[Rfam]
RNA sequence: GUGGAGUGGGAAUAAGACGUAAAUAUAAUAUGGAUGGGGAAUGCCGAUAAAUCAACGUUUUUCAACUUUUGAAAUGCUUGAUUUUCAUUAAAAAUGAUAUGGUUCCCUACCAUUUUUCCUACCAAAAAAGGGC
Numbered sequence: 001g002u003g004g005a006g007u008g009g010g011a012a013u014a015a016g017a018c019g020u021a022a023a024u025a026u027a028a029u030a031u032g033g034a035u036g037g038g039g040a041a042u043g044c045c046g047a048u049a050a051a052u053c054a055a056c057g058u059u060u061u062u063c064a065a066c067u068u069u070u071g072a073a074a075u076g077c078u079u080g081a082u083u084u085u086c087a088u089u090a091a092a093a094a095u096g097a098u099a100u101g102g103u104u105c106c107c108u109a110c111c112a113u114u115u116u117u118c119c120u121a122c123c124a125a126a127a128a129a130g131g132g133c
Base pairs, nucleotide, nucleotide: 008107009106010105011104012103049084050083051082052081053080054079055078057077058076060074061073062072063071064070085097086096087095088094114129115128116127117126

Rfam assigns this 133-nucleotide RNA from Enterococcus faecium to the family "Listeria sRNA rli38". For this family Rfam cites "The Listeria transcriptional landscape from saprophytism to virulence" (Toledo-Arana et al., Nature, 2009). Rfam classes the family as a small RNA.